[Rfam]
RNA sequence: UGAUGGCUGUUCUGCUCACUGCGUGCAGCCUUAAGUAGUGGGAUUUUAGUCCAUCAUAUAUCUAAACUGACUUGUUUUCAUUCAGGGCACCAUGGGUUAGCUGUCUGUCACUGCCUUUGAUUUUUGCAGACUCAAACAAUU
Numbered sequence: 001u002g003a004u005g006g007c008u009g010u011u012c013u014g015c016u017c018a019c020u021g022c023g024u025g026c027a028g029c030c031u032u033a034a035g036u037a038g039u040g041g042g043a044u045u046u047u048a049g050u051c052c053a054u055c056a057u058a059u060a061u062c063u064a065a066a067c068u069g070a071c072u073u074g075u076u077u078u079c080a081u082u083c084a085g086g087g088c089a090c091c092a093u094g095g096g097u098u099a100g101c102u103g104u105c106u107g108u109c110a111c112u113g114c115c116u117u118u119g120a121u122u123u124u125u126g127c128a129g130a131c132u133c134a135a136a137c138a139a140u141u
Stems, first nucleotide, its partner, number of pairs: 001056006008049001015042004020037003069133002072130002082120005087114003095106002098103001
Small nucleolar RNA SNORA79: a 141-nucleotide sequence from Bos taurus. About the family: ACA65 (SNORA79) is a member of the H/ACA class of snoRNAs that guide the sites of modification of uridines to pseudouridines. This snoRNA was identified by computational screening and its expression in mouse experimentally verified by Northern blot and primer extension analysis. Gene Ontology terms of the family: RNA processing and nucleolus. A reference for the family is Schattner et al. (2006), "A computational screen for mammalian pseudouridylation guide H/ACA RNAs", RNA. By type it is an H/ACA-box small nucleolar RNA.